[Rfam]
RNA sequence: UCCCUCAGUUCUUCGACUCUCGUUUUCCGCAAGGAAUGUCUACCGCAGACCCCCUCUCGGGCUCGUUGGACACAAUAUGCCGCUCUCGAGCCUGUAUCAGGACCUCGCUGCACGCCGCACUCGGAUCUAUUGUUGUCCUUGGCCGUCGGCAACCAGACGGUACGGCCUGGCCUGGGGAACGAGCGUCGAAACUUAACCCUAAGACAUAUC
Numbered sequence: 001u002c003c004c005u006c007a008g009u010u011c012u013u014c015g016a017c018u019c020u021c022g023u024u025u026u027c028c029g030c031a032a033g034g035a036a037u038g039u040c041u042a043c044c045g046c047a048g049a050c051c052c053c054c055u056c057u058c059g060g061g062c063u064c065g066u067u068g069g070a071c072a073c074a075a076u077a078u079g080c081c082g083c084u085c086u087c088g089a090g091c092c093u094g095u096a097u098c099a100g101g102a103c104c105u106c107g108c109u110g111c112a113c114g115c116c117g118c119a120c121u122c123g124g125a126u127c128u129a130u131u132g133u134u135g136u137c138c139u140u141g142g143c144c145g146u147c148g149g150c151a152a153c154c155a156g157a158c159g160g161u162a163c164g165g166c167c168u169g170g171c172c173u174g175g176g177g178a179a180c181g182a183g184c185g186u187c188g189a190a191a192c193u194u195a196a197c198c199c200u201a202a203g204a205c206a207u208a209u210c
Base pairs, nucleotide, nucleotide: 007193008192009191013189014188015187016186
Overview
A member of the RNA family "Ascomycota telomerase RNA" from Hirsutella rhossiliensis, 210 nucleotides of a longer RNA. The pairing is the family consensus, mapped onto this sequence. Taxonomically the source falls in Hirsutella (Eukaryota, Fungi, Dikarya, Ascomycota). Rfam classes the family as a non-coding RNA gene. Clan: Telomerase clan. Rfam 15.1 lists 475 matches to the family in 456 species. It scores 307 bits against the family's covariance model. A reference for the family is Qi et al. (2013), "The common ancestral core of vertebrate and fungal telomerase RNAs", Nucleic Acids Res.